[Rfam]
RNA sequence: CGGCGAGGCGCCCGCCUCGCCGGACCGACGCCGGUACCUCACACGGCCGGCGCGG
Number, nucleotide and partner (000 for none) at each position: 001c022002g021003g020004c019005g018006a017007g016008g015009c014010g000011c000012c000013c000014g009015c008016c007017u006018c005019g004020c003021c002022g001023g000024a000025c055026c054027g053028a000029c052030g051031c050032c049033g048034g047035u046036a000037c000038c000039u000040c000041a000042c000043a000044c000045g000046g035047c034048c033049g032050g031051c030052g029053c027054g026055g025
RNA: L17-Actino-Proteobacteria ribosomal protein leader
Organism: Actinoallomurus bryophytorum